[Rfam]
RNA sequence: AAAUGCGACCGGCCGAGUCCAUGCAGUCAGGAGGCAUGGAGCCGGGGACCCAAAUGGCUCUGUACGCAGGAGCUAAGGGGUGAAUCGGUGUGAAUUUCCACCGUAGGGCGACUUCCCCGCCCGAAUCCGUCAGCUAACCCGGUAGGCGUACGUGGAAGAUCAU
Numbered sequence: 001a002a003a004u005g006c007g008a009c010c011g012g013c014c015g016a017g018u019c020c021a022u023g024c025a026g027u028c029a030g031g032a033g034g035c036a037u038g039g040a041g042c043c044g045g046g047g048a049c050c051c052a053a054a055u056g057g058c059u060c061u062g063u064a065c066g067c068a069g070g071a072g073c074u075a076a077g078g079g080g081u082g083a084a085u086c087g088g089u090g091u092g093a094a095u096u097u098c099c100a101c102c103g104u105a106g107g108g109c110g111a112c113u114u115c116c117c118c119g120c121c122c123g124a125a126u127c128c129g130u131c132a133g134c135u136a137a138c139c140c141g142g143u144a145g146g147c148g149u150a151c152g153u154g155g156a157a158g159a160u161c162a163u
Stems, first nucleotide, its partner, number of pairs: 012147003018040007041143006051077001078128003086103004106122004
RNA: c-di-AMP riboswitch aptamer (ydaO/yuaA leader)
Organism: Acrocarpospora pleiomorpha